[Rfam]
This 191-nucleotide RNA from Aquibacillus koreensis belongs to the Rfam family "Lysine riboswitch aptamer".
RNA sequence: AGUGAGGAUAGAGGUGCAAAGACCAUUAGUAGGUAGUCGGAGGAUAAUGAGAUCCGUUGAUUGCUACUGAAAGGGGAAUUUGCCGAAGUGAGCAGGAACUCAUUCACCUGCAUACACUGGUUCUGUAUUGAAUAAAUACAGGGCUGUCAUAUAGCUUACUUUAAUUCGCUAUAUGGAGGGCUAUCUCACGC
Numbered sequence: 001a002g003u004g005a006g007g008a009u010a011g012a013g014g015u016g017c018a019a020a021g022a023c024c025a026u027u028a029g030u031a032g033g034u035a036g037u038c039g040g041a042g043g044a045u046a047a048u049g050a051g052a053u054c055c056g057u058u059g060a061u062u063g064c065u066a067c068u069g070a071a072a073g074g075g076g077a078a079u080u081u082g083c084c085g086a087a088g089u090g091a092g093c094a095g096g097a098a099c100u101c102a103u104u105c106a107c108c109u110g111c112a113u114a115c116a117c118u119g120g121u122u123c124u125g126u127a128u129u130g131a132a133u134a135a136a137u138a139c140a141g142g143g144c145u146g147u148c149a150u151a152u153a154g155c156u157u158a159c160u161u162u163a164a165u166u167c168g169c170u171a172u173a174u175g176g177a178g179g180g181c182u183a184u185c186u187c188a189c190g191c
Stems, first nucleotide, its partner, number of pairs: 006186006016083005023076002032068006039061001087118004092111005119145011147176009